[Rfam]
This 84-nucleotide RNA sequence from Arabis nemorensis belongs to the Rfam family "Small nucleolar RNA snoR110".
On this family, see Marker et al., Curr Biol 2002: "Experimental RNomics: identification of 140 candidates for small non-messenger RNAs in the plant Arabidopsis thaliana".
Rfam links the family to the GO terms nucleolus and RNA processing.
RNA sequence: GCUAGAUUUAGUGCCGCCUUGUAUUUUCAAGUUUUCUCUUUUUUGUAUGUAAGGAAAUCAUUUUUUUUACGUUGGAGAGCAUUU
Numbered sequence: 001g002c003u004a005g006a007u008u009u010a011g012u013g014c015c016g017c018c019u020u021g022u023a024u025u026u027u028c029a030a031g032u033u034u035u036c037u038c039u040u041u042u043u044u045g046u047a048u049g050u051a052a053g054g055a056a057a058u059c060a061u062u063u064u065u066u067u068u069a070c071g072u073u074g075g076a077g078a079g080c081a082u083u084u
Base pairs, nucleotide, nucleotide: 012081013080014079015077017075018074021070022069030062031061032060035057037055038054039053040052041051